[Rfam]
RNA sequence: UCCUAUGCAAAGCCGAAGUCCGGGCGACCGGACGCGGGGGACCCAAUUCAUUGGGGUGAAGGCGCGCAAUUGCGCGCAAGGGCGACUCUUUGACCCGAACCCGUCAGCUAACCUCGCAGGCUAAGUAUAAAUGGCUA
Numbered sequence: 001u002c003c004u005a006u007g008c009a010a011a012g013c014c015g016a017a018g019u020c021c022g023g024g025c026g027a028c029c030g031g032a033c034g035c036g037g038g039g040g041a042c043c044c045a046a047u048u049c050a051u052u053g054g055g056g057u058g059a060a061g062g063c064g065c066g067c068a069a070u071u072g073c074g075c076g077c078a079a080g081g082g083c084g085a086c087u088c089u090u091u092g093a094c095c096c097g098a099a100c101c102c103g104u105c106a107g108c109u110a111a112c113c114u115c116g117c118a119g120g121c122u123a124a125g126u127a128u129a130a131a132u133g134g135c136u137a
Stems, first nucleotide, its partner, number of pairs: 011122004018033006034117006044053002054102003062077004080096003
RNA: c-di-AMP riboswitch aptamer (ydaO/yuaA leader)